[Rfam]
NiCo (Nickel/Cobalt) riboswitch aptamer: a 102-nucleotide RNA sequence from Acetivibrio cellulolyticus. The family is grouped with related families in Rfam's "NiCo_riboswitches". NCBI's taxonomy places the organism under Bacteria, Bacillota, Clostridia, Acetivibrio, Acetivibrio cellulolyticus. For this family Rfam cites "Bacterial riboswitches cooperatively bind Ni(2+) or Co(2+) ions and control expression of heavy metal transporters" (Furukawa et al., Mol Cell, 2015). Rfam's curators put it in the seed alignment.
RNA sequence: ACAGUACAAACUGAUCAGGCGAUAAACCCCAAAUUUUAAGGUUUAUGCAGCUGGGCCAUAAACGGCAGCAGAUGAAAAAUAUAACACAUCUGUGGGACAGUG
Numbered sequence: 001a002c003a004g005u006a007c008a009a010a011c012u013g014a015u016c017a018g019g020c021g022a023u024a025a026a027c028c029c030c031a032a033a034u035u036u037u038a039a040g041g042u043u044u045a046u047g048c049a050g051c052u053g054g055g056c057c058a059u060a061a062a063c064g065g066c067a068g069c070a071g072a073u074g075a076a077a078a079a080u081a082u083a084a085c086a087c088a089u090c091u092g093u094g095g096g097a098c099a100g101u102g
Stems, first nucleotide, its partner, number of pairs: 010101004016096001018052003022046007055066003068093006